[Rfam]
RNA sequence: UGCAUCCUGAAACUAAUAGUAAUGGCCUUGGGGUCCCCUGUAGUUCCAUAUAUUUUAUUUAGAUAUAUAUGGAACUACAGGGGACCCCAAGGCCAUUACUAUCAGUUUCAGGAUGCA
Numbered sequence: 001u002g003c004a005u006c007c008u009g010a011a012a013c014u015a016a017u018a019g020u021a022a023u024g025g026c027c028u029u030g031g032g033g034u035c036c037c038c039u040g041u042a043g044u045u046c047c048a049u050a051u052a053u054u055u056u057a058u059u060u061a062g063a064u065a066u067a068u069a070u071g072g073a074a075c076u077a078c079a080g081g082g083g084a085c086c087c088c089a090a091g092g093c094c095a096u097u098a099c100u101a102u103c104a105g106u107u108u109c110a111g112g113a114u115g116c117a
Stems, first nucleotide, its partner, number of pairs: 001117005007112002011108002014105001017101005023095017041077004046072007054065001
The family of this 117-nucleotide RNA sequence from Alligator sinensis is "mir-63 microRNA precursor family". The base pairs follow the family's consensus structure, which was predicted with RNAalifold. Its family is annotated with RISC complex and miRNA-mediated post-transcriptional gene silencing in the Gene Ontology. It scores 56 bits against the family's covariance model. For this family Rfam cites "Repertoire and evolution of miRNA genes in four divergent nematode species" (de Wit et al., Genome Res, 2009).